[Rfam]
RNA sequence: CGAAGGCGAUGAAGCGGAAGGUUGUUGGCACACCCGGCCCCUUUGCCAUGGCGGGGUGCUAAGGAAUUUUCGUGGAGAAUGUCUAUAAUAAUAUGGGCGA
Numbered sequence: 001c002g003a004a005g006g007c008g009a010u011g012a013a014g015c016g017g018a019a020g021g022u023u024g025u026u027g028g029c030a031c032a033c034c035c036g037g038c039c040c041c042u043u044u045g046c047c048a049u050g051g052c053g054g055g056g057u058g059c060u061a062a063g064g065a066a067u068u069u070u071c072g073u074g075g076a077g078a079a080u081g082u083c084u085a086u087a088a089u090a091a092u093a094u095g096g097g098c099g100a
Stems, first nucleotide, its partner, number of pairs: 014073003018070004025062007080099006
RNA: S10-Clostridia ribosomal protein leader
Organism: Virgibacillus sp. SK37